Rfam assigns this 229-nucleotide sequence from Miscanthus lutarioriparius to the family "MIR6217 microRNA precursor family". The base pairs follow the family's consensus structure, which was predicted with RNAalifold. It scores 155 bits against the family's covariance model.
RNA sequence: UAUAUACAAAAUAACUUAUUUUGUAGCUACUUUAAGGUUACGAUAAUUAUUAUGUUAAUUUACGAGAUUAUAAUAAUUCCUUACUAAGUGGUUUACUAUAACGUUAGGAUAAUUAUCCCUAUGUGUUAUAGUAACCCAACUAUCGUAAAUAUGUAUUGACAUUAUCGUAAAUUAGUAUAUAAAAUUAUUGUAAAAGGAGGUGUCUACAGAAUAACUUAUUUUAUAGCUG
Numbered sequence: 001u002a003u004a005u006a007c008a009a010a011a012u013a014a015c016u017u018a019u020u021u022u023g024u025a026g027c028u029a030c031u032u033u034a035a036g037g038u039u040a041c042g043a044u045a046a047u048u049a050u051u052a053u054g055u056u057a058a059u060u061u062a063c064g065a066g067a068u069u070a071u072a073a074u075a076a077u078u079c080c081u082u083a084c085u086a087a088g089u090g091g092u093u094u095a096c097u098a099u100a101a102c103g104u105u106a107g108g109a110u111a112a113u114u115a116u117c118c119c120u121a122u123g124u125g126u127u128a129u130a131g132u133a134a135c136c137c138a139a140c141u142a143u144c145g146u147a148a149a150u151a152u153g154u155a156u157u158g159a160c161a162u163u164a165u166c167g168u169a170a171a172u173u174a175g176u177a178u179a180u181a182a183a184a185u186u187a188u189u190g191u192a193a194a195a196g197g198a199g200g201u202g203u204c205u206a207c208a209g210a211a212u213a214a215c216u217u218a219u220u221u222u223a224u225a226g227c228u229g
Base pairs, nucleotide, nucleotide: 001229002228005225006224008222009221010220011219012218013217014216016214017213018212019211020210021209022208023207024206025205026204028202029201030200031199032198033197038193039192040191041190042189043188044187045186046185047184048183051179052178053177054176055175056174057173058172059171060170061169062168063167066166067165068164070162071161075156081148082147083146084145088143089142090141091140092139093138094133095132096131097130098129099128100127101126102125103124104123108118